[Rfam]
RNA: ZMP/ZTP riboswitch aptamer (pfl RNA motif)
RNA sequence: ACAGAGGCGUGUGACUGGCGGAUCGUGGAGUCAACCACAGGGAGCGCGCCGUGGAUAAGAGCCGACCGCCUGGGCACGCAGU
Numbered sequence: 001a002c003a004g005a006g007g008c009g010u011g012u013g014a015c016u017g018g019c020g021g022a023u024c025g026u027g028g029a030g031u032c033a034a035c036c037a038c039a040g041g042g043a044g045c046g047c048g049c050c051g052u053g054g055a056u057a058a059g060a061g062c063c064g065a066c067c068g069c070c071u072g073g074g075c076a077c078g079c080a081g082u
Base pairs, nucleotide, nucleotide: 004052006050007049008048009047010046011045012044015041016040017070018069019068020067021066025038026037027036028035059077061075062074063073